[Rfam]
RNA sequence: CACGAACACUCUGGAGAGAAAGCCGGGCAGCCAUCCUGCGGGAGCUGCCGUCGGCUUCGCCGAAGGACACGAUCUCAGGCACAGGUACAGAGGGGGCAGU
Numbered sequence: 001c002a003c004g005a006a007c008a009c010u011c012u013g014g015a016g017a018g019a020a021a022g023c024c025g026g027g028c029a030g031c032c033a034u035c036c037u038g039c040g041g042g043a044g045c046u047g048c049c050g051u052c053g054g055c056u057u058c059g060c061c062g063a064a065g066g067a068c069a070c071g072a073u074c075u076c077a078g079g080c081a082c083a084g085g086u087a088c089a090g091a092g093g094g095g096g097c098a099g100u
Base pairs, nucleotide, nucleotide: 007094009092010091011090012089013088020057021056022055023054024053025052026051059080060079061078062076063075066074067073
RNA: Glycine riboswitch aptamer
Organism: Lautropia mirabilis